[Rfam]
RNA sequence: AGCCUUCGUUGGUCGUUCUAAAUGAGCGGUCGAUGAAGUUGCCUCAAAUCGGCCUUCGGACUGUUCAGAGAUGAUAGCAUGGCUUUUACGGACGUUUUUGGCCAUGCGGAAUGCCCUCCUUGCCGCUCUUACAAGCUCGACGGAGAGGAAUCAAAAACAAGUCCUUGUU
Numbered sequence: 001a002g003c004c005u006u007c008g009u010u011g012g013u014c015g016u017u018c019u020a021a022a023u024g025a026g027c028g029g030u031c032g033a034u035g036a037a038g039u040u041g042c043c044u045c046a047a048a049u050c051g052g053c054c055u056u057c058g059g060a061c062u063g064u065u066c067a068g069a070g071a072u073g074a075u076a077g078c079a080u081g082g083c084u085u086u087u088a089c090g091g092a093c094g095u096u097u098u099u100g101g102c103c104a105u106g107c108g109g110a111a112u113g114c115c116c117u118c119c120u121u122g123c124c125g126c127u128c129u130u131a132c133a134a135g136c137u138c139g140a141c142g143g144a145g146a147g148g149a150a151u152c153a154a155a156a157a158c159a160a161g162u163c164c165u166u167g168u169u
Stems, first nucleotide, its partner, number of pairs: 006036004011031004017025002042073001043070003091163003094158008114148002116145004125141001127140002
RNA: Ascomycota telomerase RNA, nucleotides 982 to 1150